This 100-nucleotide sequence from Gossypium mustelinum belongs to the Rfam family "Small nucleolar RNA snoR109".
NCBI's taxonomy places the organism under Eukaryota, Streptophytina, eudicotyledons, Malvoideae, Gossypium.
The match comes from Rfam's covariance-model search (92 bits).
Rfam 15.1 lists 680 matches to the family in 220 species.
Gene Ontology terms of the family: RNA processing and nucleolus.
[Rfam]
Nucleotides: 100
Stems, first nucleotide, its partner, number of pairs: 031094008043081003047077004051072004
Number, partner (000 for none) and nucleotide at each position: 001000u002000g003000g004000c005000u006000g007000u008000a009000g010000c011000u012000a013000u014000a015000u016000c017000a018000a019000a020000u021000c022000u023000a024000a025000a026000u027000g028000g029000c030000u031094g032093a033092g034091a035090a036089g037088u038087u039000a040000a041000c042000u043081g044080g045079c046000c047077g048076g049075u050074u051072g052071u053070c054069g055000u056000g057000a058000u059000u060000a061000u062000u063000c064000u065000c066000c067000g068000u069054u070053g071052a072051c073000u074050a075049a076048u077047c078000u079045g080044c081043u082000u083000a084000c085000c086000g087038a088037a089036c090035u091034u092033c093032u094031c095000a096000c097000a098000g099000u100000u